[Rfam]
RNA sequence: AUGGAAAUGAUGAUCCUUUCCCCACAUGAUCGACUCUGAUUAUACUGUGCGAUCUACUGUAACCUCCUCUUCAUGAGGAGGGGACCAAGCCAGGAUUCUGAUCCAC
Numbered sequence: 001a002u003g004g005a006a007a008u009g010a011u012g013a014u015c016c017u018u019u020c021c022c023c024a025c026a027u028g029a030u031c032g033a034c035u036c037u038g039a040u041u042a043u044a045c046u047g048u049g050c051g052a053u054c055u056a057c058u059g060u061a062a063c064c065u066c067c068u069c070u071u072c073a074u075g076a077g078g079a080g081g082g083g084a085c086c087a088a089g090c091c092a093g094g095a096u097u098c099u100g101a102u103c104c105a106c
Stems, first nucleotide, its partner, number of pairs: 002105004

Rfam assigns this 106-nucleotide RNA sequence from Ananas comosus to the family "Small nucleolar RNA Z103".
Taxonomically the source falls in Ananas (Eukaryota, Viridiplantae, Streptophyta, Embryophyta).
Pairs were carried over by alignment from the consensus structure, which was predicted with PFOLD.
Rfam 15.1 lists 2,844 matches to the family in 233 species.
It is annotated as a C/D-box small nucleolar RNA.